The family of this 34-nucleotide sequence from Phascolarctos cinereus is "Iron response element I". A reference for the family is Hentze et al. (1987), "Identification of the iron-responsive element for the translational regulation of human ferritin mRNA", Science. Taxonomically the source falls in Phascolarctos (Eukaryota, Opisthokonta, Vertebrata, Gnathostomata).
RNA sequence: GUUUCCUGCUUCAACCGUGCUUGAAUGGAACCAC
Numbered sequence: 001g002u003u004u005c006c007u008g009c010u011u012c013a014a015c016c017g018u019g020c021u022u023g024a025a026u027g028g029a030a031c032c033a034c
Stems, first nucleotide, its partner, number of pairs: 001032001003030004008026001010025005015019001
Rfam 15.1 lists 6,829 matches to the family in 599 species.